[Rfam]
RNA: mir-660 microRNA precursor family
RNA sequence: UACCCAUUGCAUAUCGGAGUUGUGAAUUCUCAAAGCACCUCCUGUGUGCAUGGAUUACA
Numbered sequence: 001u002a003c004c005c006a007u008u009g010c011a012u013a014u015c016g017g018a019g020u021u022g023u024g025a026a027u028u029c030u031c032a033a034a035g036c037a038c039c040u041c042c043u044g045u046g047u048g049c050a051u052g053g054a055u056u057a058c059a
Base pairs, nucleotide, nucleotide: 004053005052006051007050009049010048011047012046013045014044016042017041018040019039021037022036023035